[Rfam]
RNA: SAM riboswitch aptamer (S box leader)
Organism: Ornithinibacillus caprae
RNA sequence: UUCUUAUCCAGAGAGGUGGAGGGAGAUGGCCCUUUGAAGCCUCGGCAACAGGUUCUUUCUAGAAUACUGUGCCAAUUCCAGCAAGCAUAAAGCUUGAAAGAUGAGAG
Numbered sequence: 001u002u003c004u005u006a007u008c009c010a011g012a013g014a015g016g017u018g019g020a021g022g023g024a025g026a027u028g029g030c031c032c033u034u035u036g037a038a039g040c041c042u043c044g045g046c047a048a049c050a051g052g053u054u055c056u057u058u059c060u061a062g063a064a065u066a067c068u069g070u071g072c073c074a075a076u077u078c079c080a081g082c083a084a085g086c087a088u089a090a091a092g093c094u095u096g097a098a099a100g101a102u103g104a105g106a107g
Stems, first nucleotide, its partner, number of pairs: 001107008013043005021032003027080003044073004049069002051065001053063002077099001082096005